[Rfam]
RNA sequence: CCCAUAAGUAAUAAAAGGUCCGUUUAGAUUCCUUAACUUUAUUUAAAGUAUCGGUUUGGUCCUUUCUGUUAAUUUAAUUCAAAAAAACGUUAAGUUUAGAUACCAAACUAAUACUAAUUAAAUAAGUUAAGGGACUAAAAUUUAACGUUUUUUUGAAUUAAAUUAACAGAAGGGACCAAAUCGUUACUUUCAAUAAAGUUAAGCGAACUAAACGGACUUUUUAUUAUUUAAGGGA
Numbered sequence: 001c002c003c004a005u006a007a008g009u010a011a012u013a014a015a016a017g018g019u020c021c022g023u024u025u026a027g028a029u030u031c032c033u034u035a036a037c038u039u040u041a042u043u044u045a046a047a048g049u050a051u052c053g054g055u056u057u058g059g060u061c062c063u064u065u066c067u068g069u070u071a072a073u074u075u076a077a078u079u080c081a082a083a084a085a086a087a088c089g090u091u092a093a094g095u096u097u098a099g100a101u102a103c104c105a106a107a108c109u110a111a112u113a114c115u116a117a118u119u120a121a122a123u124a125a126g127u128u129a130a131g132g133g134a135c136u137a138a139a140a141u142u143u144a145a146c147g148u149u150u151u152u153u154u155g156a157a158u159u160a161a162a163u164u165a166a167c168a169g170a171a172g173g174g175a176c177c178a179a180a181u182c183g184u185u186a187c188u189u190u191c192a193a194u195a196a197a198g199u200u201a202a203g204c205g206a207a208c209u210a211a212a213c214g215g216a217c218u219u220u221u222u223a224u225u226a227u228u229u230a231a232g233g234g235a
Stems, first nucleotide, its partner, number of pairs: 002233002005230004023212003027208001029206001032203012045190003
RNA: MIR2655 microRNA precursor family
Organism: Medicago truncatula